[Rfam]
RNA sequence: GGCUUUUUUCGCCGCGGAGCUCGACCGCCCCUCGCGCUGAUCCUGGACUACAUCGACCAGCACAAAGACCAGUUCGGAGUCGAGCCGAUCUGCGCUGCGCUGACCGCGGCGGGCGCCAAGAUCGCUCCG
Dot-bracket structure: .............((((.......))))..............................................(((((......((.((((((((...............)))))..))).)))))))
Rfam assigns this 129-nucleotide sequence from Cryptosporangium aurantiacum to the family "ALIL pseudoknot". By type it is a cis-regulatory element. The match comes from Rfam's covariance-model search (61 bits). The family has 26 seed sequences and 2,146 matches in Rfam 15.1.